Small nucleolar RNA MBII-202: an 81-nucleotide sequence from Electrophorus electricus. Its family is annotated with RNA processing and nucleolus in the Gene Ontology. The family's RNA type in Rfam is C/D-box small nucleolar RNA. For this family Rfam cites "RNomics: an experimental approach that identifies 201 candidates for novel, small, non-messenger RNAs in mouse" (Huttenhofer et al., EMBO J, 2001).
RNA sequence: UGAUGACAAAUCUCCGGAAUCUCUGUACGUCUUUGAUGAUUCUCUUUGAACCCUUAUUGCUGAUGACUGUUGCGCAUUGCC
Number, nucleotide and partner (000 for none) at each position: 001u000002g081003a000004u079005g078006a077007c000008a000009a000010a000011u000012c000013u000014c000015c000016g000017g000018a000019a000020u000021c000022u000023c000024u000025g000026u000027a000028c000029g000030u000031c000032u000033u000034u000035g000036a000037u000038g000039a000040u000041u000042c000043u000044c000045u000046u000047u000048g000049a000050a000051c000052c000053c000054u000055u000056a000057u000058u000059g000060c000061u000062g000063a000064u000065g000066a000067c000068u000069g000070u000071u000072g000073c000074g000075c000076a000077u006078u005079g004080c000081c002